[Rfam]
RNA sequence: CCCCGGCCUAGGCCCUGCCUGAUCCGCAGUGCCGAAAAGCGCAUUGCCCGUGUGCCUGGCCUGGGCACUUCUACCGGG
Numbered sequence: 001c002c003c004c005g006g007c008c009u010a011g012g013c014c015c016u017g018c019c020u021g022a023u024c025c026g027c028a029g030u031g032c033c034g035a036a037a038a039g040c041g042c043a044u045u046g047c048c049c050g051u052g053u054g055c056c057u058g059g060c061c062u063g064g065g066c067a068c069u070u071c072u073a074c075c076g077g078g
Stems, first nucleotide, its partner, number of pairs: 001065003005061004011033003039055004047078004
A member of the RNA family "int-alpA RNA" from Thiomonas bhubaneswarensis, 78 nucleotides long. Pairs were carried over by alignment from the consensus structure, which is taken from published work. It is annotated as a small RNA. Rfam 15.1 lists 577 matches to the family in 491 species. About the family: Acidobacteria (1 example), Planctomycetes (1 example), Proteobacteria.